[Rfam]
RNA sequence: CUGUGGAAACCCGUAGAUCCGAACUUGUGCUGCACUGUACAACUGGACACAAGAACGGAUAUAUGGGAUUCUGUCGA
Numbered sequence: 001c002u003g004u005g006g007a008a009a010c011c012c013g014u015a016g017a018u019c020c021g022a023a024c025u026u027g028u029g030c031u032g033c034a035c036u037g038u039a040c041a042a043c044u045g046g047a048c049a050c051a052a053g054a055a056c057g058g059a060u061a062u063a064u065g066g067g068a069u070u071c072u073g074u075c076g077a
Stems, first nucleotide, its partner, number of pairs: 003074005010067003015062001017060005024053006
RNA: mir-10 microRNA precursor family
Organism: Anopheles gambiae